[Rfam]
RNA sequence: CUAAACAUCAACCCAACAAUGUUAGAUCUGUAAUCUGUAGAUCUAACAUUGUUGGGUUGAUGUUUAG
Numbered sequence: 001c002u003a004a005a006c007a008u009c010a011a012c013c014c015a016a017c018a019a020u021g022u023u024a025g026a027u028c029u030g031u032a033a034u035c036u037g038u039a040g041a042u043c044u045a046a047c048a049u050u051g052u053u054g055g056g057u058u059g060a061u062g063u064u065u066a067g
Base pairs, nucleotide, nucleotide: 002066003065004064005063006062007061008060009059011057012056013055014054015053016052017051018050019049020048021047022046023045024044025043026042
The family of this 67-nucleotide RNA sequence from Mytilus galloprovincialis is "mir-8/mir-141/mir-200 microRNA precursor family". A reference for the family is Lagos-Quintana et al. (2003), "New microRNAs from mouse and human", RNA. The base pairs follow the family's consensus structure, which was predicted with RNAalifold. Its Rfam clan is "mir-8 microRNA precursor clan".